About this RNA
Shown here is a 124-nucleotide RNA sequence from Tupaia belangeri, a member of the family "Small nucleolar RNA U109". Rfam classes the family as an H/ACA-box small nucleolar RNA. The organism belongs to Tupaia belangeri, within Eukaryota.

RNA sequence: UUGGAUGUGGAAGUAUCAUUCCUUUGGGAACAGAAAUACAUCCAUCACAUGCUACAUUAAAAAAGUUCUCCGGGCUGCCAGCCUUACUGUAGAGGUCGAGUGGUAGUAAAUUUCUACUACAUAA
Numbered sequence: 001u002u003g004g005a006u007g008u009g010g011a012a013g014u015a016u017c018a019u020u021c022c023u024u025u026g027g028g029a030a031c032a033g034a035a036a037u038a039c040a041u042c043c044a045u046c047a048c049a050u051g052c053u054a055c056a057u058u059a060a061a062a063a064a065g066u067u068c069u070c071c072g073g074g075c076u077g078c079c080a081g082c083c084u085u086a087c088u089g090u091a092g093a094g095g096u097c098g099a100g101u102g103g104u105a106g107u108a109a110a111u112u113u114c115u116a117c118u119a120c121a122u123a124a
Stems, first nucleotide, its partner, number of pairs: 003052001005050004016034002019030004064115002074104002078100001079098001081096005